[Rfam]
RNA sequence: GGUAGGUUCUCGGGUGAUGCACCCUGAAAUCGGGCUCCCACCUCUCUGGUUCUGAGUGUGUCACUCAAGUACUGCA
Numbered sequence: 001g002g003u004a005g006g007u008u009c010u011c012g013g014g015u016g017a018u019g020c021a022c023c024c025u026g027a028a029a030u031c032g033g034g035c036u037c038c039c040a041c042c043u044c045u046c047u048g049g050u051u052c053u054g055a056g057u058g059u060g061u062c063a064c065u066c067a068a069g070u071a072c073u074g075c076a
Stems, first nucleotide, its partner, number of pairs: 002075002006072002009069002012066007020058003024054001026053001028051007

A member of the RNA family "mir-9223 microRNA precursor family" from Pipistrellus kuhlii, 76 nucleotides long. Taxonomically the source falls in Pipistrellus (Eukaryota, Deuterostomia, Mammalia, Vespertilionidae). The match comes from Rfam's covariance-model search (62 bits). Its family is annotated with RISC complex and miRNA-mediated post-transcriptional gene silencing in the Gene Ontology.